Annotation:
A member of the RNA family "MIR5298 microRNA precursor family" from Medicago truncatula, 92 nucleotides long. The organism belongs to Medicago, within Eukaryota.

[Rfam]
RNA sequence: UAGGUUUUUUUUCAUUUUCUUCUGGAAUUUUUUUUGCAAUUCUUGUUGUUGAAAGUUGAUGGAGAUGAUAUGAAGAUGAAAAAGAGGAGAAG
Numbered sequence: 001u002a003g004g005u006u007u008u009u010u011u012u013c014a015u016u017u018u019c020u021u022c023u024g025g026a027a028u029u030u031u032u033u034u035u036g037c038a039a040u041u042c043u044u045g046u047u048g049u050u051g052a053a054a055g056u057u058g059a060u061g062g063a064g065a066u067g068a069u070a071u072g073a074a075g076a077u078g079a080a081a082a083a084g085a086g087g088a089g090a091a092g
Stems, first nucleotide, its partner, number of pairs: 005086015038057004043052002
Dot-bracket structure: ....(((((((((((((((..................((((.((......)).))))..............)))))))))))))))......